This 57-nucleotide sequence from Mycolicibacterium phlei belongs to the Rfam family "F6 TB sRNA". A reference for the family is Arnvig and Young (2009), "Identification of small RNAs in Mycobacterium tuberculosis", Mol Microbiol. A search with the family's covariance model found it, with a score of 66 bits. Taxonomically the source falls in Mycolicibacterium phlei (Bacteria, Bacillati, Actinomycetes, Mycobacteriales). By type it is a small RNA.
[Rfam]
RNA sequence: GGGAUAGCUCCGUACUGCCGUCAGACCCCCGACCCGGCGGCAGUGCGGGGCUCUUAU
Dot-bracket structure: ..((..((((((((((((((((.............))))))))))))))))..))..